[Rfam]
RNA: Flavo-1 RNA
Organism: Flavobacterium bizetiae
RNA sequence: UUUUAGCCCUGAUAGAAGUGGAAAUCCUUUUGUGCCGGGGUUCGGCAUAAAAGAUUGCAACGGAUAGCAGGAUUAGCU
Numbered sequence: 001u002u003u004u005a006g007c008c009c010u011g012a013u014a015g016a017a018g019u020g021g022a023a024a025u026c027c028u029u030u031u032g033u034g035c036c037g038g039g040g041u042u043c044g045g046c047a048u049a050a051a052a053g054a055u056u057g058c059a060a061c062g063g064a065u066a067g068c069a070g071g072a073u074u075a076g077c078u
Stems, first nucleotide, its partner, number of pairs: 009070003013066002018061002023056004029051008